[Rfam]
RNA sequence: CCGACCGUUCCUCCGGUCGUAGCCUAGGAUGGCGUGCAGACUGGGCAACCGGUCUGUGCGAAGCCUGUCCGACAAUGUACCCCACCCUAAAAGGUGAAGCAGAACCCGUGAGGGGGAAGCGGAGCUGCGAGCGCCACGCGGCAGGGGGC
Numbered sequence: 001c002c003g004a005c006c007g008u009u010c011c012u013c014c015g016g017u018c019g020u021a022g023c024c025u026a027g028g029a030u031g032g033c034g035u036g037c038a039g040a041c042u043g044g045g046c047a048a049c050c051g052g053u054c055u056g057u058g059c060g061a062a063g064c065c066u067g068u069c070c071g072a073c074a075a076u077g078u079a080c081c082c083c084a085c086c087c088u089a090a091a092a093g094g095u096g097a098a099g100c101a102g103a104a105c106c107c108g109u110g111a112g113g114g115g116g117a118a119g120c121g122g123a124g125c126u127g128c129g130a131g132c133g134c135c136a137c138g139c140g141g142c143a144g145g146g147g148g149c
Base pairs, nucleotide, nucleotide: 002019003018004017005016006015007014028069029068030067031066032065033060034059035058036057037056038055039054040053041052042051043050044049083096084095085094086093099120100119106113107112124142125141126140127139128138129137
Background: A member of the RNA family "Group II catalytic intron D1-D4-7" from Tepidiphilus thermophilus, 149 nucleotides long. Pairs were carried over by alignment from the consensus structure. About the family: Group II introns are found in rRNA, tRNA and mRNA of organelles in fungi, plants and protists, and also in mRNA in bacteria. The source organism's lineage runs through Bacteria, Pseudomonadati, Hydrogenophilia, Hydrogenophilales and Tepidiphilus. A search with the family's covariance model found it, with a score of 118 bits.